[Rfam]
RNA sequence: UCCAUUGUUUACUGAAAACUUUAAAUUACAACUUAUUAGACUUUCAGGAGAGCAUAGUCUCAUAUAAAGCUAAAAAGAAGCUCUCU
Dot-bracket structure: .................................[[[.[[[[[....(((((((..]]]]].]]]...............)))))))
Numbered sequence: 001u002c003c004a005u006u007g008u009u010u011a012c013u014g015a016a017a018a019c020u021u022u023a024a025a026u027u028a029c030a031a032c033u034u035a036u037u038a039g040a041c042u043u044u045c046a047g048g049a050g051a052g053c054a055u056a057g058u059c060u061c062a063u064a065u066a067a068a069g070c071u072a073a074a075a076a077g078a079a080g081c082u083c084u085c086u
Stems, first nucleotide, its partner, number of pairs: 034064003038060005047086007
Overview:
Rfam assigns this 86-nucleotide RNA sequence to the family "RAGATH-27 RNA". Pairs were carried over by alignment from the consensus structure, which is taken from published work. Rfam's curators put it in the seed alignment.